[Rfam]
Rfam assigns this 98-nucleotide RNA sequence from Pararhodobacter oceanensis to the family "Bacterial small signal recognition particle RNA". The match comes from Rfam's covariance-model search (62 bits).
RNA sequence: CGAGAGGCUGGCGCGGGCAGGCGUUUCGCCAACCCGGUCAGGUCCGGAAGGAAGCAGCCGCAACGAUUCCCGUCUGGGUCGUGUCCGGUCUCUCACCU
Numbered sequence: 001c002g003a004g005a006g007g008c009u010g011g012c013g014c015g016g017g018c019a020g021g022c023g024u025u026u027c028g029c030c031a032a033c034c035c036g037g038u039c040a041g042g043u044c045c046g047g048a049a050g051g052a053a054g055c056a057g058c059c060g061c062a063a064c065g066a067u068u069c070c071c072g073u074c075u076g077g078g079u080c081g082u083g084u085c086c087g088g089u090c091u092c093u094c095a096c097c098u
Stems, first nucleotide, its partner, number of pairs: 004092005010085006018076006026066003035060004043052003